Record summary
Potassium channel RNA editing signal: a 114-nucleotide RNA from Silurus meridionalis. Gene Ontology term of the family: adenosine to inosine editing. From the family's description: This family represents a group of sequences related to the human potassium channel Kv1.1 hairpin element which directs the efficient modification of an adenosine to inosine by an adenosine deaminase acting on RNA (ADAR). Rfam 15.1 lists 14,095 matches to the family in 1,000 species. It scores 87 bits against the family's covariance model.
[Rfam]
RNA sequence: GUGGGCUACGGAGAUAUUUACCCCAAGACUUUAUUGGGGAAGAUUGUUGGUGGACUUUGUUGCAUCGCAGGAGUGCUAGUCAUUGCCCUACCCAUUCCUAUUAUUGUAAACAAC
Numbered sequence: 001g002u003g004g005g006c007u008a009c010g011g012a013g014a015u016a017u018u019u020a021c022c023c024c025a026a027g028a029c030u031u032u033a034u035u036g037g038g039g040a041a042g043a044u045u046g047u048u049g050g051u052g053g054a055c056u057u058u059g060u061u062g063c064a065u066c067g068c069a070g071g072a073g074u075g076c077u078a079g080u081c082a083u084u085g086c087c088c089u090a091c092c093c094a095u096u097c098c099u100a101u102u103a104u105u106g107u108a109a110a111c112a113a114c
Stems, first nucleotide, its partner, number of pairs: 001114002004111001007108005013102004020095001037077002040074001049063001